[Rfam]
This 82-nucleotide RNA from Roseburia inulinivorans belongs to the Rfam family "ZMP/ZTP riboswitch aptamer (pfl RNA motif)".
The base pairs follow the family's consensus structure, which is taken from published work.

RNA sequence: CAAUUGUUAUAUGACUGACGGAAAUAGUGGGGUUUACCACGUGAAGUAUAACAAAAGAAUGCCGACCGUCUGGGCGAAGAGU
Numbered sequence: 001c002a003a004u005u006g007u008u009a010u011a012u013g014a015c016u017g018a019c020g021g022a023a024a025u026a027g028u029g030g031g032g033u034u035u036a037c038c039a040c041g042u043g044a045a046g047u048a049u050a051a052c053a054a055a056a057g058a059a060u061g062c063c064g065a066c067c068g069u070c071u072g073g074g075c076g077a078a079g080a081g082u
Stems, first nucleotide, its partner, number of pairs: 004054009015043001017070005027040004060076004